[Rfam]
RNA sequence: AGUAAUAAACGUAAUUUAGAAUAGAGGUUGCGGACUCGGGGGCAGUACCCGACGCCUCCACCAAAACUUUCUAAAUAACUUGCUCCUAAAGGUAAUUUGUACGUCGAUCCGGUAUUCGAAUCCUCACGUUACUUACGUGCACCCUGCGGUUCUACGUUCCGUGUUGCCUUCAAAUUUCUCUUUAUUAGCUACGUCAUUUAGAAAAGUUUAAAUAUGUAAUAACUCUUAAAGAGUAGACAAUACGAAGUUCAUCGAGUAUUUUUGGGGGGCGAAAUAGGAUCGACGUGCCUAAUAAAAAGAUUGCUUUUACUCGGGAUGAUUCCGCCGAUGGCUUGUGCCAUAUGGGUCAAAACAAAGAAACGCAAACGAUAAUAAUCGUUCUGUAGGUCAUUUAGCUUUAGCAGCUUAA
Numbered sequence: 001a002g003u004a005a006u007a008a009a010c011g012u013a014a015u016u017u018a019g020a021a022u023a024g025a026g027g028u029u030g031c032g033g034a035c036u037c038g039g040g041g042g043c044a045g046u047a048c049c050c051g052a053c054g055c056c057u058c059c060a061c062c063a064a065a066a067c068u069u070u071c072u073a074a075a076u077a078a079c080u081u082g083c084u085c086c087u088a089a090a091g092g093u094a095a096u097u098u099g100u101a102c103g104u105c106g107a108u109c110c111g112g113u114a115u116u117c118g119a120a121u122c123c124u125c126a127c128g129u130u131a132c133u134u135a136c137g138u139g140c141a142c143c144c145u146g147c148g149g150u151u152c153u154a155c156g157u158u159c160c161g162u163g164u165u166g167c168c169u170u171c172a173a174a175u176u177u178c179u180c181u182u183u184a185u186u187a188g189c190u191a192c193g194u195c196a197u198u199u200a201g202a203a204a205a206g207u208u209u210a211a212a213u214a215u216g217u218a219a220u221a222a223c224u225c226u227u228a229a230a231g232a233g234u235a236g237a238c239a240a241u242a243c244g245a246a247g248u249u250c251a252u253c254g255a256g257u258a259u260u261u262u263u264g265g266g267g268g269g270c271g272a273a274a275u276a277g278g279a280u281c282g283a284c285g286u287g288c289c290u291a292a293u294a295a296a297a298a299g300a301u302u303g304c305u306u307u308u309a310c311u312c313g314g315g316a317u318g319a320u321u322c323c324g325c326c327g328a329u330g331g332c333u334u335g336u337g338c339c340a341u342a343u344g345g346g347u348c349a350a351a352a353c354a355a356a357g358a359a360a361c362g363c364a365a366a367c368g369a370u371a372a373u374a375a376u377c378g379u380u381c382u383g384u385a386g387g388u389c390a391u392u393u394a395g396c397u398u399u400a401g402c403a404g405c406u407u408a409a
Stems, first nucleotide, its partner, number of pairs: 001311005014301004026289003030286003036052005053271007312327003
The record is a 409-nucleotide RNA from Rickettsia africae, which matches "permuted transfer-messenger RNA" in Rfam. Pairs were carried over by alignment from the consensus structure, which is taken from published work. The family's RNA type in Rfam is non-coding RNA gene.